[Rfam]
RNA sequence: UGCAUCUUGUCGGAGUGCUAAUGGGAAUUUCCCAAAGGCUGAGACCACAUAAGUAACUGUGUUUAAAAAGCAGUUGCGUGGGAUCCGUGGAACCUGAUUGGGCUAAUACCUACGAAGGGAACAAGUAGAAAAUAUCU
Numbered sequence: 001u002g003c004a005u006c007u008u009g010u011c012g013g014a015g016u017g018c019u020a021a022u023g024g025g026a027a028u029u030u031c032c033c034a035a036a037g038g039c040u041g042a043g044a045c046c047a048c049a050u051a052a053g054u055a056a057c058u059g060u061g062u063u064u065a066a067a068a069a070g071c072a073g074u075u076g077c078g079u080g081g082g083a084u085c086c087g088u089g090g091a092a093c094c095u096g097a098u099u100g101g102g103c104u105a106a107u108a109c110c111u112a113c114g115a116a117g118g119g120a121a122c123a124a125g126u127a128g129a130a131a132a133u134a135u136c137u
Base pairs, nucleotide, nucleotide: 006125007124008123009122010121011087012086013085014084016081017039018038019037046080047079048078050076051075052074093118094117095116099112100111101110102109
Rfam assigns this 137-nucleotide RNA sequence from Psychromonas algicola to the family "TPP riboswitch aptamer (THI element)". Lineage of the source: Bacteria > Pseudomonadota > Alteromonadales > Psychromonadaceae > Psychromonas. Rfam links the family to the GO term thiamine pyrophosphate binding.